[Rfam]
RNA sequence: CUCUUAUCAAGAGAGGCAGAGGGACUGGCCCUGCGAAGCCUCAGCAACCACUGGUCUAUUCCAGAAAGGUGCUAACUCCAGCAAGUUGUUUAGACAACUUGGAAGAUAAGAA
Number, nucleotide and partner (000 for none) at each position: 001c000002u111003c110004u109005u108006a107007u106008c105009a000010a000011g000012a000013g042014a041015g040016g039017c038018a000019g000020a000021g031022g030023g029024a000025c081026u080027g079028g078029c023030c022031c021032u000033g000034c000035g000036a000037a000038g017039c016040c015041u014042c013043a073044g072045c071046a070047a000048c069049c068050a000051c064052u063053g062054g000055u000056c000057u000058a000059u000060u000061c000062c053063a052064g051065a000066a000067a000068g049069g048070u046071g045072c044073u043074a000075a000076c000077u104078c028079c027080a026081g025082c101083a100084a099085g098086u097087u096088g000089u000090u000091u000092a000093g000094a000095c000096a087097a086098c085099u084100u083101g082102g000103a000104a077105g008106a007107u006108a005109a004110g003111a002112a000
RNA: SAM riboswitch aptamer (S box leader)